The record is a 266-nucleotide sequence from Desulfosporosinus acididurans, which matches "Bacterial large signal recognition particle RNA" in Rfam.
Gene Ontology terms of the family: signal recognition particle, plasma membrane targeting and SRP-dependent cotranslational protein targeting to membrane, signal sequence recognition.
The source organism's lineage runs through Bacteria, Clostridia, Eubacteriales, Desulfitobacteriaceae and Desulfosporosinus.
It is annotated as a non-coding RNA gene.
The family's consensus secondary structure is taken from published work.
RNA sequence: CCGUACUAGACGGGGAGGUAGCGGUUCCUUGUAACUUGCAGUCCGCUCUAGCAAGGUGGAAUUCCUGCGAAAGGUCCACAUCUGUGAAGCUGUCUUUGGUAGAUGGUGAUGAGAUUUUGGUCUUACGCAACAGAACACUCCGAACCGUGUCAGGUCUUGACGGAAGCAGCACUAAGGAGGAUGUUUUGUGUGCCGUAAGGUUGCCUGAAUCGAACUGUUCGACCAAGGUAACGUUCGGAGGUGAAGGAUCGAUCUAAGGUGUACGG
Numbered sequence: 001c002c003g004u005a006c007u008a009g010a011c012g013g014g015g016a017g018g019u020a021g022c023g024g025u026u027c028c029u030u031g032u033a034a035c036u037u038g039c040a041g042u043c044c045g046c047u048c049u050a051g052c053a054a055g056g057u058g059g060a061a062u063u064c065c066u067g068c069g070a071a072a073g074g075u076c077c078a079c080a081u082c083u084g085u086g087a088a089g090c091u092g093u094c095u096u097u098g099g100u101a102g103a104u105g106g107u108g109a110u111g112a113g114a115u116u117u118u119g120g121u122c123u124u125a126c127g128c129a130a131c132a133g134a135a136c137a138c139u140c141c142g143a144a145c146c147g148u149g150u151c152a153g154g155u156c157u158u159g160a161c162g163g164a165a166g167c168a169g170c171a172c173u174a175a176g177g178a179g180g181a182u183g184u185u186u187u188g189u190g191u192g193c194c195g196u197a198a199g200g201u202u203g204c205c206u207g208a209a210u211c212g213a214a215c216u217g218u219u220c221g222a223c224c225a226a227g228g229u230a231a232c233g234u235u236c237g238g239a240g241g242u243g244a245a246g247g248a249u250c251g252a253u254c255u256a257a258g259g260u261g262u263a264c265g266g
Base pairs, nucleotide, nucleotide: 001266002265003264004263005262006261010057011056012030013029014028015027016026017025019023035055036054037053038052039051064259065258066257069254070253073250074249075248076247077246079243080242081241082240083239085237086236087235088234092232093231094228095227096226097225098224099223102219103218105216106215107214113211114210115209116208117207119205120204121203122199123198124197125196126195127194128190129189131188132187133186134185135184138179139178140177141176147172148171149170150169155164156163157162